[Rfam]
RNA: Infectious bronchitis virus D-RNA
Organism: Pseudoselenomonas ruminis
RNA sequence: GAAAGACAGCCAUGCAGGUCCCUUGAUUACCUGCAUGGCUGUCGGC
Number, nucleotide and partner (000 for none) at each position: 001g046002a000003a000004a000005g043006a042007c041008a040009g039010c038011c037012a036013u035014g034015c033016a032017g031018g030019u029020c000021c000022c000023u000024u000025g000026a000027u000028u000029a019030c018031c017032u016033g015034c014035a013036u012037g011038g010039c009040u008041g007042u006043c005044g000045g000046c001